[Rfam]
RNA sequence: ACGCUAUGAUGAGAUGAAGCAUUUCCUGACUUGGUAUUGUCACCCCAGGGUGUCACUGAUCAAGGUGUGAUUGGUUGUAAUCUUCUCUCUGAGCUG
Numbered sequence: 001a002c003g004c005u006a007u008g009a010u011g012a013g014a015u016g017a018a019g020c021a022u023u024u025c026c027u028g029a030c031u032u033g034g035u036a037u038u039g040u041c042a043c044c045c046c047a048g049g050g051u052g053u054c055a056c057u058g059a060u061c062a063a064g065g066u067g068u069g070a071u072u073g074g075u076u077g078u079a080a081u082c083u084u085c086u087c088u089c090u091g092a093g094c095u096g
Stems, first nucleotide, its partner, number of pairs: 001095001003094002039054001041052002

Overview
Z30 small nucleolar RNA: a 96-nucleotide RNA sequence from Coregonus sp. 'balchen'. The family's RNA type in Rfam is C/D-box small nucleolar RNA. A search with the family's covariance model found it, with a score of 63 bits. The literature on the family includes a 2002 paper in Mol Cell Biol by Galardi et al., "Purified box C/D snoRNPs are able to reproduce site-specific 2'-O-methylation of target RNA in vitro". Rfam links the family to the GO terms nucleolus and RNA processing.